c-di-GMP-I riboswitch aptamer: a 98-nucleotide RNA sequence from Gottfriedia endophytica. The source organism's lineage runs through Bacteria, Bacillati, Bacilli, Bacillaceae and Gottfriedia. A search with the family's covariance model found it, with a score of 40 bits.
[Rfam]
RNA sequence: CAAAUAAAAAAGUAAAAUCAUUGGAAAGAUGGUACGCAAAGCUACGUGCCUUAAGAACUGUCAGCAUGCACCAGUUCCGCGGUAGUCGGGCCGCCACA
Numbered sequence: 001c002a003a004a005u006a007a008a009a010a011a012g013u014a015a016a017a018u019c020a021u022u023g024g025a026a027a028g029a030u031g032g033u034a035c036g037c038a039a040a041g042c043u044a045c046g047u048g049c050c051u052u053a054a055g056a057a058c059u060g061u062c063a064g065c066a067u068g069c070a071c072c073a074g075u076u077c078c079g080c081g082g083u084a085g086u087c088g089g090g091c092c093g094c095c096a097c098a
Base pairs, nucleotide, nucleotide: 012037013036017033018032019031020030021029022028041091042090043089045088046087048083049082050081055077056076057075058074059073060072